[Rfam]
RNA sequence: GGAUUUACUGGGCGUAAAGGGUGCGUAGGUGGUCUUUCAAGUCGGUGGUUAAAGGCUACGGCUCAACCGUAUUAAGCCGCCGAAACUGGAAGACUUGAGUGCAGGAGAGGAAAGUGGAAUUCUCAGUGUAGCGGUGAAAUGCGUAGAUAUUGGGAAGAACACCAGUAGCGAAGGCGGCUUUCUGGACUGCAACUGACAUUGAGGCACGAAAGCGUGGGUAGCAAACAGGAUUAGAUACCCUGGUAGUCCACGCCGUAAACGAUGAGUACUAGGUGUCGGGGUUACCCCCCUCGGUGCCGCAGUUAACGCAUUAAGUACUCCGCCUGGGGAGUACACACGCAAGUGUGAAACUCAAAGGAAU
Numbered sequence: 001g002g003a004u005u006u007a008c009u010g011g012g013c014g015u016a017a018a019g020g021g022u023g024c025g026u027a028g029g030u031g032g033u034c035u036u037u038c039a040a041g042u043c044g045g046u047g048g049u050u051a052a053a054g055g056c057u058a059c060g061g062c063u064c065a066a067c068c069g070u071a072u073u074a075a076g077c078c079g080c081c082g083a084a085a086c087u088g089g090a091a092g093a094c095u096u097g098a099g100u101g102c103a104g105g106a107g108a109g110g111a112a113a114g115u116g117g118a119a120u121u122c123u124c125a126g127u128g129u130a131g132c133g134g135u136g137a138a139a140u141g142c143g144u145a146g147a148u149a150u151u152g153g154g155a156a157g158a159a160c161a162c163c164a165g166u167a168g169c170g171a172a173g174g175c176g177g178c179u180u181u182c183u184g185g186a187c188u189g190c191a192a193c194u195g196a197c198a199u200u201g202a203g204g205c206a207c208g209a210a211a212g213c214g215u216g217g218g219u220a221g222c223a224a225a226c227a228g229g230a231u232u233a234g235a236u237a238c239c240c241u242g243g244u245a246g247u248c249c250a251c252g253c254c255g256u257a258a259a260c261g262a263u264g265a266g267u268a269c270u271a272g273g274u275g276u277c278g279g280g281g282u283u284a285c286c287c288c289c290c291u292c293g294g295u296g297c298c299g300c301a302g303u304u305a306a307c308g309c310a311u312u313a314a315g316u317a318c319u320c321c322g323c324c325u326g327g328g329g330a331g332u333a334c335a336c337a338c339g340c341a342a343g344u345g346u347g348a349a350a351c352u353c354a355a356a357g358g359a360a361u
Stems, first nucleotide, its partner, number of pairs: 011324003019321001021207004026201001028200003032094007040087002042083009055073001057071005098194003101190004109183007116160001120156008131142003168175002212253006221247002226242004264320006272298010302309002326353003335346004
RNA: Bacterial small subunit ribosomal RNA, nucleotides 656 to 1016
Organism: uncultured bacterium